[Rfam]
miR-430 microRNA precursor family: a 70-nucleotide RNA sequence from Bagarius yarrelli. Gene Ontology terms of the family: miRNA-mediated post-transcriptional gene silencing and RISC complex.
RNA sequence: AGUGAUACCCUAACAAUGGCUCUAACCUGUCUAAAUCAUUUGGUAAGUGCUAUUUGUUGGGGUAGUUUGU
Numbered sequence: 001a002g003u004g005a006u007a008c009c010c011u012a013a014c015a016a017u018g019g020c021u022c023u024a025a026c027c028u029g030u031c032u033a034a035a036u037c038a039u040u041u042g043g044u045a046a047g048u049g050c051u052a053u054u055u056g057u058u059g060g061g062g063u064a065g066u067u068u069g070u
Stems, first nucleotide, its partner, number of pairs: 004066001006064006013057004018051003022047002025044003
NCBI's taxonomy places the organism under Eukaryota, Deuterostomia, Teleostomi, Siluriformes, Bagarius. A search with the family's covariance model found it, with a score of 56 bits.